The record is a 388-nucleotide RNA sequence from Actinokineospora bangkokensis, which matches "Bacterial RNase P class A" in Rfam. The match comes from Rfam's covariance-model search (275 bits). The organism belongs to Actinokineospora, within Bacteria. By type it is a ribozyme. Pairs were carried over by alignment from the consensus structure, which is taken from published work.

[Rfam]
RNA sequence: CGAGUCGGCCGGGCGGCCGCGGCGGGGGGUUCCCCCGACGAGGAAAGUCCGGACUCCGCAGGGCAGGGUGGUUGUUAACGGCAACCCGGGGUGACCCGCGGGACAGUGCCACAGAGAGCAGACCGCCUGGUGGCGACACCAGGUAAGGGUGAAACGGUGGUGUAAGAGACCACCAGCGCCCCGGGUGACCGGGGCGGCUAGGUAAACCCCACCCGGAGCAAGGCCAAGAGGGGGUCCUCGCGGACCCCUGCGCAGGCGUUCGAGGGCUGCCCGCCCGAGCCUGCGGGUAGGCCGCUGGAGCCUGCCGGCGACGGCAGGCCUAGAUGGAUGGCCGCCACCGGGGCCCCGCGCCCCGGGACAGGAUCCGGCUUACACGCCGGCUCGCCCG
Numbered sequence: 001c002g003a004g005u006c007g008g009c010c011g012g013g014c015g016g017c018c019g020c021g022g023c024g025g026g027g028g029g030u031u032c033c034c035c036c037g038a039c040g041a042g043g044a045a046a047g048u049c050c051g052g053a054c055u056c057c058g059c060a061g062g063g064c065a066g067g068g069u070g071g072u073u074g075u076u077a078a079c080g081g082c083a084a085c086c087c088g089g090g091g092u093g094a095c096c097c098g099c100g101g102g103a104c105a106g107u108g109c110c111a112c113a114g115a116g117a118g119c120a121g122a123c124c125g126c127c128u129g130g131u132g133g134c135g136a137c138a139c140c141a142g143g144u145a146a147g148g149g150u151g152a153a154a155c156g157g158u159g160g161u162g163u164a165a166g167a168g169a170c171c172a173c174c175a176g177c178g179c180c181c182c183g184g185g186u187g188a189c190c191g192g193g194g195c196g197g198c199u200a201g202g203u204a205a206a207c208c209c210c211a212c213c214c215g216g217a218g219c220a221a222g223g224c225c226a227a228g229a230g231g232g233g234g235u236c237c238u239c240g241c242g243g244a245c246c247c248c249u250g251c252g253c254a255g256g257c258g259u260u261c262g263a264g265g266g267c268u269g270c271c272c273g274c275c276c277g278a279g280c281c282u283g284c285g286g287g288u289a290g291g292c293c294g295c296u297g298g299a300g301c302c303u304g305c306c307g308g309c310g311a312c313g314g315c316a317g318g319c320c321u322a323g324a325u326g327g328a329u330g331g332c333c334g335c336c337a338c339c340g341g342g343g344c345c346c347c348g349c350g351c352c353c354c355g356g357g358a359c360a361g362g363a364u365c366c367g368g369c370u371u372a373c374a375c376g377c378c379g380g381c382u383c384g385c386c387c388g
Base pairs, nucleotide, nucleotide: 001384002383003382004381005380006379007378008377009376011373012336013335014334015333016332017331018330020040021039023037024036025035026034027033028032045371046370047369049368050367051366052365053364054218055217056216057215061272062271063270064269066214067213068212069211070210071085072084073083074082075081086100087098088097089096090095101209102208106207107206108203109202110201123148124147125144126143127142128141129140130139131138132137156174157173158172159171160170161169176198177196178195179194180193181192182191183190184189222293223292224291225290252284253283254282255281256280257279264276265275266274267273300319301318302317303316304315305314306313307312